[Rfam]
A member of the RNA family "SmY spliceosomal RNA" from Bursaphelenchus xylophilus, 74 nucleotides long. By type it is a spliceosomal small nuclear RNA. It scores 55 bits against the family's covariance model.
RNA sequence: UUGUUCUAUAAGUCAAGUUCAGGGCCUUUCUGAAGACCCGAUGAACAAUUUUUGGAAAGCAUUGUAAAAUGCAA
Numbered sequence: 001u002u003g004u005u006c007u008a009u010a011a012g013u014c015a016a017g018u019u020c021a022g023g024g025c026c027u028u029u030c031u032g033a034a035g036a037c038c039c040g041a042u043g044a045a046c047a048a049u050u051u052u053u054g055g056a057a058a059g060c061a062u063u064g065u066a067a068a069a070u071g072c073a074a
Base pairs, nucleotide, nucleotide: 022039023038024037026035027034028033062074063073064072065071066070